[Rfam]
RNA sequence: AAGGUUGCCUACGCCACUGCCAUGGAUUGGUUCAUUGCUGUCUGCUACGCCUUU
Numbered sequence: 001a002a003g004g005u006u007g008c009c010u011a012c013g014c015c016a017c018u019g020c021c022a023u024g025g026a027u028u029g030g031u032u033c034a035u036u037g038c039u040g041u042c043u044g045c046u047a048c049g050c051c052u053u054u
Base pairs, nucleotide, nucleotide: 001054002053003052007050008049010047011046013045014044016041017040019038020037022035023034024033025032026031

Rfam assigns this 54-nucleotide RNA sequence from Labrus bergylta to the family "Editing element of GABA-3 exon 9". The organism belongs to Labrus, within Eukaryota. It is annotated as a cis-regulatory element.